Annotation: The family of this 242-nucleotide RNA sequence from Chelydra serpentina is "Small nucleolar RNA SNORA53". NCBI's taxonomy places the organism under Eukaryota, Opisthokonta, Testudinata, Chelydridae, Chelydra. The family's RNA type in Rfam is H/ACA-box small nucleolar RNA. Rfam 15.1 lists 1,090 matches to the family in 800 species. The base pairs follow the family's consensus structure, which was predicted with RNAalifold. About the family: The snoRNA ACA53 belongs to the H/ACA family of pseudouridylation guide snoRNAs.

[Rfam]
RNA sequence: AACAUGCUCCUUAGAUCCAUCUUUGUGGAUAUCUCUUGUGCUGAGUUCUACUUGUUAACUUUAGUUUCUGGUAGUUCCAGUCAGUGAUAUUCAGCAACUUUUUGUUGUACAGUCAAAGAUGCUUGAGUCAUUGGCAUGUGAGAGUAAUAUACCUGCACAUUUGCCUUUUGUGUUCUGAUAUCAAUGACUGUAGAUAUACAUGUCAUUUCUCACUAUCAGGACUUGGCUGGUAUGCAGACAUG
Numbered sequence: 001a002a003c004a005u006g007c008u009c010c011u012u013a014g015a016u017c018c019a020u021c022u023u024u025g026u027g028g029a030u031a032u033c034u035c036u037u038g039u040g041c042u043g044a045g046u047u048c049u050a051c052u053u054g055u056u057a058a059c060u061u062u063a064g065u066u067u068c069u070g071g072u073a074g075u076u077c078c079a080g081u082c083a084g085u086g087a088u089a090u091u092c093a094g095c096a097a098c099u100u101u102u103u104g105u106u107g108u109a110c111a112g113u114c115a116a117a118g119a120u121g122c123u124u125g126a127g128u129c130a131u132u133g134g135c136a137u138g139u140g141a142g143a144g145u146a147a148u149a150u151a152c153c154u155g156c157a158c159a160u161u162u163g164c165c166u167u168u169u170g171u172g173u174u175c176u177g178a179u180a181u182c183a184a185u186g187a188c189u190g191u192a193g194a195u196a197u198a199c200a201u202g203u204c205a206u207u208u209c210u211c212a213c214u215a216u217c218a219g220g221a222c223u224u225g226g227c228u229g230g231u232a233u234g235c236a237g238a239c240a241u242g
Stems, first nucleotide, its partner, number of pairs: 002139007010127005018121008026093006034087002037084001040081004045077001048074004054068001057066003094108005153237005160230001163227003174220007185212003190203003